Source information:
The family of this 35-nucleotide RNA from Carlito syrichta is "Iron response element I". It scores 44 bits against the family's covariance model. On this family, see Zhang et al., Insect Mol Biol 2001: "Repression of Manduca sexta ferritin synthesis by IRP1/IRE interaction". The family's consensus secondary structure is taken from published work. Rfam classes the family as a cis-regulatory element.

RNA sequence: CGGUUUCCUGCUUCAACAGUGCUUGGACAGAACUG
Numbered sequence: 001c002g003g004u005u006u007c008c009u010g011c012u013u014c015a016a017c018a019g020u021g022c023u024u025g026g027a028c029a030g031a032a033c034u035g
Stems, first nucleotide, its partner, number of pairs: 001035005007030001010028001012027005017021001